[Rfam]
RNA sequence: UCCCCCACAGUCCUCCGGUCCUCGUUUCUCGCAAGGGAUCCUAUUGUAGGCACCCGCAUCAUUUGGUUACCCUCCCAUAUGCCGCUCUCGAGCCUGUAACAGGACCUCGUGAAUGCCGCAGCCGGAUUAUGGUGGGUAGCGCGUCCUGUAUAGGAUGUACCAAGCGGGCGGGUGAACGAGGCUCGGAACUUAACCCUAAGAAGAUAU
Numbered sequence: 001u002c003c004c005c006c007a008c009a010g011u012c013c014u015c016c017g018g019u020c021c022u023c024g025u026u027u028c029u030c031g032c033a034a035g036g037g038a039u040c041c042u043a044u045u046g047u048a049g050g051c052a053c054c055c056g057c058a059u060c061a062u063u064u065g066g067u068u069a070c071c072c073u074c075c076c077a078u079a080u081g082c083c084g085c086u087c088u089c090g091a092g093c094c095u096g097u098a099a100c101a102g103g104a105c106c107u108c109g110u111g112a113a114u115g116c117c118g119c120a121g122c123c124g125g126a127u128u129a130u131g132g133u134g135g136g137u138a139g140c141g142c143g144u145c146c147u148g149u150a151u152a153g154g155a156u157g158u159a160c161c162a163a164g165c166g167g168g169c170g171g172g173u174g175a176a177c178g179a180g181g182c183u184c185g186g187a188a189c190u191u192a193a194c195c196c197u198a199a200g201a202a203g204a205u206a207u
Stems, first nucleotide, its partner, number of pairs: 009190003015186004

Shown here is a 207-nucleotide part of an RNA from Fusarium phyllophilum, a member of the family "Ascomycota telomerase RNA". The family is grouped with related families in Rfam's "Telomerase clan". It scores 367 bits against the family's covariance model. It is annotated as a non-coding RNA gene.